THF (Tetrahydrofolate) riboswitch aptamer: a 97-nucleotide sequence from Alkalibacterium kapii.
Taxonomically the source falls in Alkalibacterium (Bacteria, Bacilli, Lactobacillales, Carnobacteriaceae).
Rfam links the family to the GO term tetrahydrofolate metabolic process.
The base pairs follow the family's consensus structure, which is taken from published work.

RNA sequence: GAAAGAGUAAGAGAAAAACGUUAAGUGCUAGGCGGAUGGGAUGUUGCCGCUAGACGAAAAAACCUCGGUUUUGCGAUUUUUCUCUGCAUCCGCUUUA
Numbered sequence: 001g002a003a004a005g006a007g008u009a010a011g012a013g014a015a016a017a018a019c020g021u022u023a024a025g026u027g028c029u030a031g032g033c034g035g036a037u038g039g040g041a042u043g044u045u046g047c048c049g050c051u052a053g054a055c056g057a058a059a060a061a062a063c064c065u066c067g068g069u070u071u072u073g074c075g076a077u078u079u080u081u082c083u084c085u086g087c088a089u090c091c092g093c094u095u096u097a
Stems, first nucleotide, its partner, number of pairs: 002096004010085009019075003025055002028053004033049003039091005059072004